[Rfam]
Nucleotides: 074
Stems, first nucleotide, its partner, number of pairs: 003072004
Number, partner (000 for none) and nucleotide at each position: 001000g002000u003072u004071u005070g006069a007000a008000u009000g010000a011000u012000g013000a014000u015000u016000a017000a018000a019000a020000c021000u022000u023000u024000c025000g026000u027000u028000c029000u030000u031000c032000u033000u034000a035000g036000a037000u038000c039000c040000u041000a042000u043000g044000c045000u046000g047000a048000a049000a050000a051000a052000a053000c054000g055000g056000a057000g058000a059000c060000c061000u062000g063000a064000u065000c066000u067000g068000a069006u070005c071004a072003g073000c074000a
A member of the RNA family "Small nucleolar RNA Z159/U59" from Babesia microti, 74 nucleotides long. The source organism's lineage runs through Eukaryota, Alveolata, Piroplasmida, Babesia and Babesia microti.